[Rfam]
RNA sequence: UGUAUUGGGAUGAAACCCAUGCGUGUCAACUGAGUCUCUAAAUCUCUUGUCGUGGUGUCGACCCAGCUGGCGUUUUGCAAGCUUGACUCGACAGCGAAGCAAGGCCUUAGAGAAAUGAUCAGGACUGACUUUCUGAAUGCA
Numbered sequence: 001u002g003u004a005u006u007g008g009g010a011u012g013a014a015a016c017c018c019a020u021g022c023g024u025g026u027c028a029a030c031u032g033a034g035u036c037u038c039u040a041a042a043u044c045u046c047u048u049g050u051c052g053u054g055g056u057g058u059c060g061a062c063c064c065a066g067c068u069g070g071c072g073u074u075u076u077g078c079a080a081g082c083u084u085g086a087c088u089c090g091a092c093a094g095c096g097a098a099g100c101a102a103g104g105c106c107u108u109a110g111a112g113a114a115a116u117g118a119u120c121a122g123g124a125c126u127g128a129c130u131u132u133c134u135g136a137a138u139g140c141a
Stems, first nucleotide, its partner, number of pairs: 001141004045104005050097004